The record is a 134-nucleotide sequence from Pipra filicauda, which matches "Small nucleolar RNA SNORA57" in Rfam. Pairs were carried over by alignment from the consensus structure, which was predicted with PFOLD. Its family is annotated with nucleolus and RNA processing in the Gene Ontology. From the family's description: U99 belongs to the H/ACA class of snoRNAs which are thought to guide the sites of modification of uridines to pseudouridines, the target for this family is unknown.
RNA sequence: CCUCCCGUUCUUGGCGGGCUCCGGCGGUCCCGUGCCGGGGCCUGUGAUGUGCGGAGGGAAAGCAGAGACCGGCGCGAAGUCUUCGGUGCCGGCGGUCGCGUCCGCCGGUCCCACCCUCACACGCCGGGACAGAC
Numbered sequence: 001c002c003u004c005c006c007g008u009u010c011u012u013g014g015c016g017g018g019c020u021c022c023g024g025c026g027g028u029c030c031c032g033u034g035c036c037g038g039g040g041c042c043u044g045u046g047a048u049g050u051g052c053g054g055a056g057g058g059a060a061a062g063c064a065g066a067g068a069c070c071g072g073c074g075c076g077a078a079g080u081c082u083u084c085g086g087u088g089c090c091g092g093c094g095g096u097c098g099c100g101u102c103c104g105c106c107g108g109u110c111c112c113a114c115c116c117u118c119a120c121a122c123g124c125c126g127g128g129a130c131a132g133a134c
Base pairs, nucleotide, nucleotide: 001057002056003055004054005053015044016043017042018041019040020039022037023036024035025034070126071125072124073123074122089108090107091106092105093104094103095102
NCBI's taxonomy places the organism under Eukaryota, Chordata, Archelosauria, Pipridae, Pipra. A reference for the family is Vitali et al. (2003), "Identification of 13 novel human modification guide RNAs", Nucleic Acids Res. It is annotated as an H/ACA-box small nucleolar RNA.